[Rfam]
c-di-AMP riboswitch aptamer (ydaO/yuaA leader): a 151-nucleotide RNA from Aureibacillus halotolerans. Rfam links the family to the GO terms regulation of gene expression and cyclic-di-AMP binding. Taxonomically the source falls in Aureibacillus (Bacteria, Bacillota, Bacilli, Bacillaceae).
RNA sequence: CAUUCAUGAUCGCUUAAUUUUUCAUUUGAAAAAGCGGGGGACCCAUUUAUGUGGCAAGUCCACUUGGGGUGAAUCCAUUGCGUGCAAUGGUAGGGUGACUCUUACACCCGAAUCCGACAGCUAACCUCGUCAGCGUGUAAAGAGAAGAAUG
Numbered sequence: 001c002a003u004u005c006a007u008g009a010u011c012g013c014u015u016a017a018u019u020u021u022u023c024a025u026u027u028g029a030a031a032a033a034g035c036g037g038g039g040g041a042c043c044c045a046u047u048u049a050u051g052u053g054g055c056a057a058g059u060c061c062a063c064u065u066g067g068g069g070u071g072a073a074u075c076c077a078u079u080g081c082g083u084g085c086a087a088u089g090g091u092a093g094g095g096u097g098a099c100u101c102u103u104a105c106a107c108c109c110g111a112a113u114c115c116g117a118c119a120g121c122u123a124a125c126c127u128c129g130u131c132a133g134c135g136u137g138u139a140a141a142g143a144g145a146a147g148a149a150u151g
Stems, first nucleotide, its partner, number of pairs: 011135004018033005034130006044066002067115003075090004093109004